[Rfam]
RNA sequence: GGAGAAUUGGCCGAGAGGCUGAAGGCACACCCCUGCUAAGGGUGCAUAGGGGCAAAACCUCUAUCGAGGGUUCGAAUCCCUCAUUCUCCG
Dot-bracket structure: (((((((..(((...........))).(((((.......))))).....................(((((.......)))))))))))).

Rfam assigns this 90-nucleotide sequence from a Neisseriaceae bacterium to the family "tRNA".